[Rfam]
RNA: Small nucleolar RNA Z118/Z121/Z120
Organism: Paspalum vaginatum
RNA sequence: GCUUUGCAUUGAUGACUUCUUCAAGGACGGUAUCUGAGCGAGGUGGCCCUUGAAAGGGCAUUCCUCGCAUGAUUACAUCCUGAACUGAGACUGAUAUCUGAGCAAACU
Numbered sequence: 001g002c003u004u005u006g007c008a009u010u011g012a013u014g015a016c017u018u019c020u021u022c023a024a025g026g027a028c029g030g031u032a033u034c035u036g037a038g039c040g041a042g043g044u045g046g047c048c049c050u051u052g053a054a055a056g057g058g059c060a061u062u063c064c065u066c067g068c069a070u071g072a073u074u075a076c077a078u079c080c081u082g083a084a085c086u087g088a089g090a091c092u093g094a095u096a097u098c099u100g101a102g103c104a105a106a107c108u
Base pairs, nucleotide, nucleotide: 001108003106004105005104006103007102038068039067040066041065042064043063